[Rfam]
RNA sequence: GGGUCAUUACCAAGGCUGCUGGGAUGUUGCUGUUUCUGGUUAGCUGUGGACAUGACCAUAAAGCAAAGCCAUCAGACUCCUGAACUGCUACAUCAUGUGGCACUAAGUCUGUUGGGAAUAAAG
Numbered sequence: 001g002g003g004u005c006a007u008u009a010c011c012a013a014g015g016c017u018g019c020u021g022g023g024a025u026g027u028u029g030c031u032g033u034u035u036c037u038g039g040u041u042a043g044c045u046g047u048g049g050a051c052a053u054g055a056c057c058a059u060a061a062a063g064c065a066a067a068g069c070c071a072u073c074a075g076a077c078u079c080c081u082g083a084a085c086u087g088c089u090a091c092a093u094c095a096u097g098u099g100g101c102a103c104u105a106a107g108u109c110u111g112u113u114g115g116g117a118a119u120a121a122a123g
Base pairs, nucleotide, nucleotide: 003056004055005054006053007052010049011048012047029044030043031042032041069115070114071113075109076108077107078106086102087101088100
RNA: Small nucleolar RNA SNORA32